This 114-nucleotide sequence from Schistosoma haematobium belongs to the Rfam family "Potassium channel RNA editing signal".
The source organism's lineage runs through Eukaryota, Platyhelminthes, Rhabditophora, Digenea and Schistosoma.
Rfam's curators write: This family represents a group of sequences related to the human potassium channel Kv1.1 hairpin element which directs the efficient modification of an adenosine to inosine by an adenosine deaminase acting on RNA (ADAR).
Rfam classes the family as a cis-regulatory element.
RNA sequence: GUAGGAUAUGGAGAUAUGAGACCUGUAACAAUGUGGGGAAAGAUUGUAGGUUCAAUGUGUGCAAUUGCAGGUGUCCUAACUAUAGCACUUCCUGUACCUGUUAUUGUAUCAAAC
Numbered sequence: 001g002u003a004g005g006a007u008a009u010g011g012a013g014a015u016a017u018g019a020g021a022c023c024u025g026u027a028a029c030a031a032u033g034u035g036g037g038g039a040a041a042g043a044u045u046g047u048a049g050g051u052u053c054a055a056u057g058u059g060u061g062c063a064a065u066u067g068c069a070g071g072u073g074u075c076c077u078a079a080c081u082a083u084a085g086c087a088c089u090u091c092c093u094g095u096a097c098c099u100g101u102u103a104u105u106g107u108a109u110c111a112a113a114c
Stems, first nucleotide, its partner, number of pairs: 001114002005110001007108005013102004018097001020095001037077002040074001050062002
The family's consensus secondary structure is taken from published work.